[Rfam]
RNA sequence: AAAUUCAUAGUUUUCAUAGCAUUUAAAGCAUCUUUUGUGAUUUCAAGUAUAGAAUUUAAAUCUUUAUUGACGGCUUUUUGUAUGAUAGUGUUUUGCAUGAUAAUCCUUUGUAUAAGGAAGGGUGAUGGUGGCUCCGAUUGGACUUGAACCAACGGCCACUACCA
Numbered sequence: 001a002a003a004u005u006c007a008u009a010g011u012u013u014u015c016a017u018a019g020c021a022u023u024u025a026a027a028g029c030a031u032c033u034u035u036u037g038u039g040a041u042u043u044c045a046a047g048u049a050u051a052g053a054a055u056u057u058a059a060a061u062c063u064u065u066a067u068u069g070a071c072g073g074c075u076u077u078u079u080g081u082a083u084g085a086u087a088g089u090g091u092u093u094u095g096c097a098u099g100a101u102a103a104u105c106c107u108u109u110g111u112a113u114a115a116g117g118a119a120g121g122g123u124g125a126u127g128g129u130g131g132c133u134c135c136g137a138u139u140g141g142a143c144u145u146g147a148a149c150c151a152a153c154g155g156c157c158a159c160u161a162c163c164a
Stems, first nucleotide, its partner, number of pairs: 024049002030043001033040001126161006135154002138152004
Dot-bracket structure: .......................((....(..(......)..)....))............................................................................((((((...((.((((.......)))))).))))))...
The record is a 164-nucleotide RNA from Campylobacter jejuni, which matches "Bacterial antisense RNA HPnc0260" in Rfam. It scores 62 bits against the family's covariance model.